[Rfam]
RNA sequence: GGUUGCAAGUCUGAGGCCAUAGCAGAAGUGCACAUAGCACAGCCCUGUCAGAUUCCAAUGAAUCUGUGAAGUCUCCU
Numbered sequence: 001g002g003u004u005g006c007a008a009g010u011c012u013g014a015g016g017c018c019a020u021a022g023c024a025g026a027a028g029u030g031c032a033c034a035u036a037g038c039a040c041a042g043c044c045c046u047g048u049c050a051g052a053u054u055c056c057a058a059u060g061a062a063u064c065u066g067u068g069a070a071g072u073c074u075c076c077u
Base pairs, nucleotide, nucleotide: 013045015044016043017042021077022076024074025073026072028040029039030038049066050065051064052063053062054061055060